Overview:
Guanidine-II riboswitch aptamer (mini-ykkC): a 50-nucleotide RNA sequence from Trametes coccinea. The base pairs follow the family's consensus structure, which is taken from published work.
[Rfam]
RNA sequence: CGUCGGGGACGGCCUCGCCGCCGCGCGCCACAACGUCGGGGACGGCCUCG
Numbered sequence: 001c002g003u004c005g006g007g008g009a010c011g012g013c014c015u016c017g018c019c020g021c022c023g024c025g026c027g028c029c030a031c032a033a034c035g036u037c038g039g040g041g042a043c044g045g046c047c048u049c050g
Stems, first nucleotide, its partner, number of pairs: 001020002004017005037050005